Rfam assigns this 183-nucleotide RNA sequence from Paenibacillus crassostreae to the family "c-di-AMP riboswitch aptamer (ydaO/yuaA leader)". The source organism's lineage runs through Bacteria, Bacillati, Bacilli, Caryophanales and Paenibacillus.

RNA sequence: AUGUCUUGAACGCUGAAUUCUGUGAAAUUCAGAAACGGGGGAACCAAUCGGAGAUGUCUGCUGCGUAAACGCCGGAUGUUUCCAUGGGGUGAAUUUUUCGGCUAUUGUAUUUCAAAGCCGGGAAUAGGGCGACUCUCUCGCCCGAAUCCGACAGCUAACCUCGUAAGCGUACAGGGAGAGGCA
Numbered sequence: 001a002u003g004u005c006u007u008g009a010a011c012g013c014u015g016a017a018u019u020c021u022g023u024g025a026a027a028u029u030c031a032g033a034a035a036c037g038g039g040g041g042a043a044c045c046a047a048u049c050g051g052a053g054a055u056g057u058c059u060g061c062u063g064c065g066u067a068a069a070c071g072c073c074g075g076a077u078g079u080u081u082c083c084a085u086g087g088g089g090u091g092a093a094u095u096u097u098u099c100g101g102c103u104a105u106u107g108u109a110u111u112u113c114a115a116a117g118c119c120g121g122g123a124a125u126a127g128g129g130c131g132a133c134u135c136u137c138u139c140g141c142c143c144g145a146a147u148c149c150g151a152c153a154g155c156u157a158a159c160c161u162c163g164u165a166a167g168c169g170u171a172c173a174g175g176g177a178g179a180g181g182c183a
Stems, first nucleotide, its partner, number of pairs: 011169004018034005035164006045086002087149003095124009127143004
Dot-bracket structure: ..........((((...(((((.......)))))((((((....((......................................))(((.....(((((((((............)))))))))..((((.........))))...))).........)))))).))))..............